[Rfam]
RNA sequence: UACUACAUAGGGCAAACCUAUUGAAAAAUAGGGACGCAAAGCUACGAGUCUAAGGUAAAGCAAUUUGCUAUGAUCGUCGGGUUGCACAU
Numbered sequence: 001u002a003c004u005a006c007a008u009a010g011g012g013c014a015a016a017c018c019u020a021u022u023g024a025a026a027a028a029u030a031g032g033g034a035c036g037c038a039a040a041g042c043u044a045c046g047a048g049u050c051u052a053a054g055g056u057a058a059a060g061c062a063a064u065u066u067g068c069u070a071u072g073a074u075c076g077u078c079g080g081g082u083u084g085c086a087c088a089u
Base pairs, nucleotide, nucleotide: 012037013036017032018031019030020029021028022027040083041082042081043080045079046078047077048074049073050072055068056067057066058065